[Rfam]
RNA: Voltage-gated potassium-channel Kv1.4 IRES
RNA sequence: AUGUUUGAGGAGCACUAGGCUGUUGUCUAGACUAAGCAAGCUCUGGAAAGCAAUGCUGAGUCUCUGAGAAGAGGGAGCAUGGGGUGUGCUGAUUUAAAAACAGAAAAUGCAAAGUUGGACUGAAAAUAUCCCAAGUCUUCUAAGCAAUCUGCUUAAGGCUUCCAAACUUACCUUAAUUUGGUAAGAAAAUAAGCUGCCCUAUUUUUCUUUCUUCUUCUCUUACAACUGGAACCAGCCAUUUCCCCAAACUACCACCAUG
Numbered sequence: 001a002u003g004u005u006u007g008a009g010g011a012g013c014a015c016u017a018g019g020c021u022g023u024u025g026u027c028u029a030g031a032c033u034a035a036g037c038a039a040g041c042u043c044u045g046g047a048a049a050g051c052a053a054u055g056c057u058g059a060g061u062c063u064c065u066g067a068g069a070a071g072a073g074g075g076a077g078c079a080u081g082g083g084g085u086g087u088g089c090u091g092a093u094u095u096a097a098a099a100a101c102a103g104a105a106a107a108u109g110c111a112a113a114g115u116u117g118g119a120c121u122g123a124a125a126a127u128a129u130c131c132c133a134a135g136u137c138u139u140c141u142a143a144g145c146a147a148u149c150u151g152c153u154u155a156a157g158g159c160u161u162c163c164a165a166a167c168u169u170a171c172c173u174u175a176a177u178u179u180g181g182u183a184a185g186a187a188a189a190u191a192a193g194c195u196g197c198c199c200u201a202u203u204u205u206u207c208u209u210u211c212u213u214c215u216u217c218u219c220u221u222a223c224a225a226c227u228g229g230a231a232c233c234a235g236c237c238a239u240u241u242c243c244c245c246a247a248a249c250u251a252c253c254a255c256c257a258u259g
Stems, first nucleotide, its partner, number of pairs: 045243005066216012079202008088194003093189003101151004108146003115143005122137002167185006